[Rfam]
RNA sequence: GGUUCAGUCACUUUUGGGUGUAAGCAACAAGUACCAGGUCACCCGGUGACCCGGUACUUGUUGCUUACACCCAAAAGUGACUGAACC
Numbered sequence: 001g002g003u004u005c006a007g008u009c010a011c012u013u014u015u016g017g018g019u020g021u022a023a024g025c026a027a028c029a030a031g032u033a034c035c036a037g038g039u040c041a042c043c044c045g046g047u048g049a050c051c052c053g054g055u056a057c058u059u060g061u062u063g064c065u066u067a068c069a070c071c072c073a074a075a076a077g078u079g080a081c082u083g084a085a086c087c
Base pairs, nucleotide, nucleotide: 002086003085004084005083006082007081008080009079010078011077012076013075014074015073016072017071018070019069020068023065024064025063026062027061028060029059030058031057032056033055034054035053
Overview:
mir-153 microRNA precursor family: an 87-nucleotide RNA sequence from Symbiodinium microadriaticum. Lineage of the source: Eukaryota > Sar > Suessiales > Symbiodiniaceae > Symbiodinium. A reference for the family is Chen et al. (2005), "The developmental miRNA profiles of zebrafish as determined by small RNA cloning", Genes Dev. The match comes from Rfam's covariance-model search (55 bits).